[Rfam]
RNA: Molybdenum/Tungsten riboswitch aptamer (Moco RNA motif)
Nucleotides: 117
Stems, first nucleotide, its partner, number of pairs: 004110001012102005019055003023051003027048003034042002060085011086094002
Number, partner (000 for none) and nucleotide at each position: 001000a002000a003000u004110a005000a006000a007000c008000g009000u010000u011000a012102g013101c014100u015099c016098c017000g018000a019055g020054c021053c022000u023051g024050u025049u026000u027048a028047c029046c030000u031000a032000a033000a034042u035041c036000a037000a038000u039000a040000c041035g042034a043000g044000a045000u046029g047028g048027u049025g050024g051023c052000u053021g054020g055019c056000c057000a058000a059000u060085g061084g062083g063082u064081g065080u066079a067078a068077u069076g070075g071000g072000a073000a074000a075070c076069u077068g078067u079066u080065a081064c082063a083062u084061c085060u086094u087093c088000c089000u090000u091000u092000u093087g094086a095000a096000a097000a098016g099015g100014a101013g102012u103000g104000u105000u106000g107000c108000a109000a110004u111000u112000a113000u114000u115000c116000g117000g